[Rfam]
RNA sequence: UGAGAUGGGGGUCAUGGUAGAAGCGUUCACGUCGCGACCCCUGUCAGAGAUCUAACCAAUCCCUGCGAAUUCUACC
Numbered sequence: 001u002g003a004g005a006u007g008g009g010g011g012u013c014a015u016g017g018u019a020g021a022a023g024c025g026u027u028c029a030c031g032u033c034g035c036g037a038c039c040c041c042u043g044u045c046a047g048a049g050a051u052c053u054a055a056c057c058a059a060u061c062c063c064u065g066c067g068a069a070u071u072c073u074a075c076c
Stems, first nucleotide, its partner, number of pairs: 008041006016076007023035003045065003049061003
Dot-bracket structure: .......[[[[[[..((((((((((.......)))]]]]]]...(((.(((.......))).)))....)))))))
Notes: Shown here is a 76-nucleotide RNA sequence from Synaphobranchus kaupii, a member of the family "Mammalian CPEB3 ribozyme". The source organism's lineage runs through Eukaryota, Eumetazoa, Bilateria, Teleostei and Synaphobranchus. The match comes from Rfam's covariance-model search (62 bits). The base pairs follow the family's consensus structure, which is taken from published work.